[Rfam]
The family of this 248-nucleotide sequence from Glutinoglossum americanum is "Small nucleolar RNA snR191".

RNA sequence: UUCCAUCGUUAAGUCAAGACUCCUUCCUGCAUCCUAUUGCACCUAUCAAUGGAAGUUUUGUCUGUUACAACUUUGGUAGAUUGACCCCUUACCCGCCGCUCCUAGCCAUUUUGGCUAUUGAGUAGACUGCUCUUCGUCUUGGAGAGCGAGUCAUAUAGGGUUUGGGAAUGUCUCGUUUGAGUUGAGCAUCGACUCCGCUGGUAACCUGGUGGUUGGUGGCGAUUCUCUUAGUAAUGAUUCAUACACCC
Numbered sequence: 001u002u003c004c005a006u007c008g009u010u011a012a013g014u015c016a017a018g019a020c021u022c023c024u025u026c027c028u029g030c031a032u033c034c035u036a037u038u039g040c041a042c043c044u045a046u047c048a049a050u051g052g053a054a055g056u057u058u059u060g061u062c063u064g065u066u067a068c069a070a071c072u073u074u075g076g077u078a079g080a081u082u083g084a085c086c087c088c089u090u091a092c093c094c095g096c097c098g099c100u101c102c103u104a105g106c107c108a109u110u111u112u113g114g115c116u117a118u119u120g121a122g123u124a125g126a127c128u129g130c131u132c133u134u135c136g137u138c139u140u141g142g143a144g145a146g147c148g149a150g151u152c153a154u155a156u157a158g159g160g161u162u163u164g165g166g167a168a169u170g171u172c173u174c175g176u177u178u179g180a181g182u183u184g185a186g187c188a189u190c191g192a193c194u195c196c197g198c199u200g201g202u203a204a205c206c207u208g209g210u211g212g213u214u215g216g217u218g219g220c221g222a223u224u225c226u227c228u229u230a231g232u233a234a235u236g237a238u239u240c241a242u243a244c245a246c247c248c
Stems, first nucleotide, its partner, number of pairs: 003076003017063004023055005029040003087166002091161004098123004103117005127150001130146007168242003173237004184227003190221002193218001196211006
Dot-bracket structure: ..(((...........((((..(((((.(((......)))..........)))))....))))..........)))..........((..((((...((((.(((((.....)))))..))))...(..(((((((...)))))))...).......))))...)).(((..((((.......(((...((.(..((((((....))))))......).))...)))......))))..)))......
The family's consensus secondary structure was predicted with WAR. Rfam links the family to the GO terms nucleolus and RNA processing.